[Rfam]
RNA sequence: AGUGCAAAUGGCUCUAUCGCUGUUCGUCCCGAUAGCUAUCGGGAUGGAGAGAGGAAAGUCCGGGCAACACAGAGUAUCCUGCUUCUUAACGGGAAGGCGUUUUUUAUAGGGCGACAGAAAGUGCUACAGAAAAUAAACUACCUCGCCUCGCUUCCGAUGAUUAUCGGGAUCGGGAUUAGGAAAAGGUGAAAACGUGAGGUAAGAGCUCACGACUUUGUAUGGUAACAUGCAUCGUGGUAAACCUCAGGAGUUGAAAGGUCAAAUAAGUUCAGGUUUUGAGGUUACUCGCUUCAAUUGAUUCGUCAAUAUCUGGAUGGGUAGACUGAUAGAUUAUAAUAGCAAUAUUAUGGCAAGAUAAAUGAUAGAGACAUCUUGAUUAAACUCAGGAUGACAGAACCCGGCUUACAAGUUUGCAUUAUUA
Numbered sequence: 001a002g003u004g005c006a007a008a009u010g011g012c013u014c015u016a017u018c019g020c021u022g023u024u025c026g027u028c029c030c031g032a033u034a035g036c037u038a039u040c041g042g043g044a045u046g047g048a049g050a051g052a053g054g055a056a057a058g059u060c061c062g063g064g065c066a067a068c069a070c071a072g073a074g075u076a077u078c079c080u081g082c083u084u085c086u087u088a089a090c091g092g093g094a095a096g097g098c099g100u101u102u103u104u105u106a107u108a109g110g111g112c113g114a115c116a117g118a119a120a121g122u123g124c125u126a127c128a129g130a131a132a133a134u135a136a137a138c139u140a141c142c143u144c145g146c147c148u149c150g151c152u153u154c155c156g157a158u159g160a161u162u163a164u165c166g167g168g169a170u171c172g173g174g175a176u177u178a179g180g181a182a183a184a185g186g187u188g189a190a191a192a193c194g195u196g197a198g199g200u201a202a203g204a205g206c207u208c209a210c211g212a213c214u215u216u217g218u219a220u221g222g223u224a225a226c227a228u229g230c231a232u233c234g235u236g237g238u239a240a241a242c243c244u245c246a247g248g249a250g251u252u253g254a255a256a257g258g259u260c261a262a263a264u265a266a267g268u269u270c271a272g273g274u275u276u277u278g279a280g281g282u283u284a285c286u287c288g289c290u291u292c293a294a295u296u297g298a299u300u301c302g303u304c305a306a307u308a309u310c311u312g313g314a315u316g317g318g319u320a321g322a323c324u325g326a327u328a329g330a331u332u333a334u335a336a337u338a339g340c341a342a343u344a345u346u347a348u349g350g351c352a353a354g355a356u357a358a359a360u361g362a363u364a365g366a367g368a369c370a371u372c373u374u375g376a377u378u379a380a381a382c383u384c385a386g387g388a389u390g391a392c393a394g395a396a397c398c399c400g401g402c403u404u405a406c407a408a409g410u411u412u413g414c415a416u417u418a419u420u421a
Stems, first nucleotide, its partner, number of pairs: 001417009011406001012367007020051002023048010056404003060401005065253004074300001077249005082096005097115001098113006116244002121242002123238003138185002141180003145176001147174004193211006216231006257324004267315006294307005331350008
Dot-bracket structure: (((((((((.((((((((.((.((((((((((......)))))))))).))....[[[.[[[[[((((.....[..((((((((((.....)))))(((((((....)))))).)((...(((((............((.(((.(.((((....................)))).).)))...)).......((((((.......))))))....((((((....))))))....)))..)))))))))))))...((((......((((((.....................(((((.]..)))))..)))))).....))))......((((((((....))))))))..........))))))).............................]]]]]]]].)..)))))))))....
A member of the RNA family "Bacterial RNase P class A" from Pseudopedobacter sp., 421 nucleotides long. It scores 230 bits against the family's covariance model. Its family is annotated with ribonuclease P activity, tRNA processing and dimeric ribonuclease P complex in the Gene Ontology.